[Rfam]
RNA sequence: CGCCAGCAUCAAGAGUCGAACGACGUUCGACGCCAACCUGCUCCCCGAGCAAGGUGGCGCCCCCGGCAACGGGGGGAUGUGGCCGGACCGGCAACCAAACGGGACCUC
Numbered sequence: 001c002g003c004c005a006g007c008a009u010c011a012a013g014a015g016u017c018g019a020a021c022g023a024c025g026u027u028c029g030a031c032g033c034c035a036a037c038c039u040g041c042u043c044c045c046c047g048a049g050c051a052a053g054g055u056g057g058c059g060c061c062c063c064c065g066g067c068a069a070c071g072g073g074g075g076g077a078u079g080u081g082g083c084c085g086g087a088c089c090g091g092c093a094a095c096c097a098a099a100c101g102g103g104a105c106c107u108c
Stems, first nucleotide, its partner, number of pairs: 006080005015031006032058003037054003040050003045103002082092004
Background:
The family of this 108-nucleotide sequence from Sphingomonas melonis is "SAM-I/IV (S-adenosyl methionine) riboswitch aptamer". Gene Ontology terms of the family: regulation of gene expression and S-adenosylmethionine metabolic process. The organism belongs to Sphingomonas, within Bacteria. On this family, see Trausch et al., PNAS 2014: "Structural basis for diversity in the SAM clan of riboswitches". Clan: SAM clan.